The family of this 56-nucleotide RNA from Pleurocapsales cyanobacterium LEGE 06147 is "Glutamine riboswitch aptamer (glnA leader)". It scores 63 bits against the family's covariance model.

[Rfam]
RNA sequence: AUCGUUCAUCUCUCUAGUAGAGAGACGGAAGUAGGGUUUUCCCGAAGGAACGCGCC
Numbered sequence: 001a002u003c004g005u006u007c008a009u010c011u012c013u014c015u016a017g018u019a020g021a022g023a024g025a026c027g028g029a030a031g032u033a034g035g036g037u038u039u040u041c042c043c044g045a046a047g048g049a050a051c052g053c054g055c056c
Base pairs, nucleotide, nucleotide: 003052004051005050006049007048009025010024011023012022013021014020015019028053034043035042036041